[Rfam]
RNA sequence: CUUCUAAAUAGAGGCGCGCUGCGGAUGAGUACUUCUUUUCAUCAGGAAUGGGGAAAGGGAAGAGGAGAAAAGGCCAAAGCGCCGAAGUUCUGGCCGCAUCCCCAUUGGCGGCAGGGCUGGGGUGCUCGUGAAUAAUGAUCAUCCUGUCAUAGGAGAAGUUUCUCUUAUGGAGCGCUAUUUACGUU
Dot-bracket structure: .....((((((....(((((..((.......((((((((....................))))))))......))..)))))...(((((((.(..(.........)..).)))))))((((((.((((.....)))).)))))).(((((((..........)))))))....)))))).....
This 185-nucleotide RNA sequence from Brevibacillus borstelensis belongs to the Rfam family "Lysine riboswitch aptamer". Gene Ontology term of the family: lysine biosynthetic process.